Description: The record is a 262-nucleotide RNA sequence from Mediterraneibacter torques, which matches "Bacterial large signal recognition particle RNA" in Rfam.
[Rfam]
RNA sequence: UCGUGCAGCCGGGGUGUUAGCGGUACCUUGUACCUGCAAUCCGCUAUAGCAGGGGUGAUAUUGUGCAGAGGGCGACAGCCGGCAGAGCUGCCUUAGGUAAGUGGCGUUGAUGUUUGGGUCUUACGCGACGGGAAUCUGUGAAUCGUGUCAGGUCGGGAACGGAGCAGCACUAAGCAGAACCUUCCGGGUGCCGUAAGGGCGCCUGAACUGAGUUAACUGCCUAAGUAACGUCUGUUAGCCUAGCUCGAAGCACAAUGCACGA
Numbered sequence: 001u002c003g004u005g006c007a008g009c010c011g012g013g014g015u016g017u018u019a020g021c022g023g024u025a026c027c028u029u030g031u032a033c034c035u036g037c038a039a040u041c042c043g044c045u046a047u048a049g050c051a052g053g054g055g056u057g058a059u060a061u062u063g064u065g066c067a068g069a070g071g072g073c074g075a076c077a078g079c080c081g082g083c084a085g086a087g088c089u090g091c092c093u094u095a096g097g098u099a100a101g102u103g104g105c106g107u108u109g110a111u112g113u114u115u116g117g118g119u120c121u122u123a124c125g126c127g128a129c130g131g132g133a134a135u136c137u138g139u140g141a142a143u144c145g146u147g148u149c150a151g152g153u154c155g156g157g158a159a160c161g162g163a164g165c166a167g168c169a170c171u172a173a174g175c176a177g178a179a180c181c182u183u184c185c186g187g188g189u190g191c192c193g194u195a196a197g198g199g200c201g202c203c204u205g206a207a208c209u210g211a212g213u214u215a216a217c218u219g220c221c222u223a224a225g226u227a228a229c230g231u232c233u234g235u236u237a238g239c240c241u242a243g244c245u246c247g248a249a250g251c252a253c254a255a256u257g258c259a260c261g262a
Base pairs, nucleotide, nucleotide: 001262002261003260004259005258006257007256008056009055010054011029012028013027014026015025016024017023018022033053034052035051036050037049061255062254063253064252065251066250070246071245072244073243078239079238081236082235083234084233085232089227090226093224094223095222096221097220098219101217102216103214104213105212112208113207114206115205116204117203118202119201120197121196122195123194124193125192126188129186130185131184132183133182135178136177137176138175139174145170146169147168148167153162154161155160

NCBI's taxonomy places the organism under Bacteria, Bacillati, Clostridia, Lachnospiraceae, Mediterraneibacter torques. Pairs were carried over by alignment from the consensus structure, which is taken from published work. For this family Rfam cites "Kinship in the SRP RNA family" (Rosenblad et al., RNA Biol, 2009).